[Rfam]
Notes: Rfam assigns this 360-nucleotide RNA sequence from Aspergillus parasiticus to the family "RNase MRP". The family's RNA type in Rfam is ribozyme.

RNA sequence: UUCUCGCUCAAAGGAUCGCAUUCAAAGCUCACACACAGAAUAUUCCUAGCGGGAUAUUCUCCUCUCACCAAAAGAGGUAAUGGCUUUGGGAGAAAGUCCCCGGACAUCCUGACCUUCAUAUCGGUCAGGCAUUGCGGAAACGCGCCGCCAUAGAAGCAAUUCGAUAGCGGCUGACUGCCCUAUUCCUUCCCGGUAUCCUGUUUGUAUCCGACGCCUUCAAGGUGGAAACAAUGGUGGUAUAACUGGUUGCCGGAGAGGGGUUUAUCUGGGUUGCCAUUCGUCGUGUUUGGAUAGUCAUGCGAUUGCCUGGUUCCCUUGCAGGAACUGGGUAACUCAAUGGGGCUCAUUCUUGAGGCGAGG
Numbered sequence: 001u002u003c004u005c006g007c008u009c010a011a012a013g014g015a016u017c018g019c020a021u022u023c024a025a026a027g028c029u030c031a032c033a034c035a036c037a038g039a040a041u042a043u044u045c046c047u048a049g050c051g052g053g054a055u056a057u058u059c060u061c062c063u064c065u066c067a068c069c070a071a072a073a074g075a076g077g078u079a080a081u082g083g084c085u086u087u088g089g090g091a092g093a094a095a096g097u098c099c100c101c102g103g104a105c106a107u108c109c110u111g112a113c114c115u116u117c118a119u120a121u122c123g124g125u126c127a128g129g130c131a132u133u134g135c136g137g138a139a140a141c142g143c144g145c146c147g148c149c150a151u152a153g154a155a156g157c158a159a160u161u162c163g164a165u166a167g168c169g170g171c172u173g174a175c176u177g178c179c180c181u182a183u184u185c186c187u188u189c190c191c192g193g194u195a196u197c198c199u200g201u202u203u204g205u206a207u208c209c210g211a212c213g214c215c216u217u218c219a220a221g222g223u224g225g226a227a228a229c230a231a232u233g234g235u236g237g238u239a240u241a242a243c244u245g246g247u248u249g250c251c252g253g254a255g256a257g258g259g260g261u262u263u264a265u266c267u268g269g270g271u272u273g274c275c276a277u278u279c280g281u282c283g284u285g286u287u288u289g290g291a292u293a294g295u296c297a298u299g300c301g302a303u304u305g306c307c308u309g310g311u312u313c314c315c316u317u318g319c320a321g322g323a324a325c326u327g328g329g330u331a332a333c334u335c336a337a338u339g340g341g342g343c344u345c346a347u348u349c350u351u352g353a354g355g356c357g358a359g360g
Base pairs, nucleotide, nucleotide: 002360003359004358005357006356007355008353009352010351011350014304015303016302017301018300019299022090023088024087025086026085027084028083038059039058040057041056042055043054044053045052046051095344096343098342099341100340101339111126112125113124114123128275129274130273135268136267137266138265140263146260148258149257243253244252245251246250306329307328308327309326310325311324312323313322314321
The literature on the family includes a 1993 paper in FASEB J by Schmitt et al., "Secondary structure of RNase MRP RNA as predicted by phylogenetic comparison".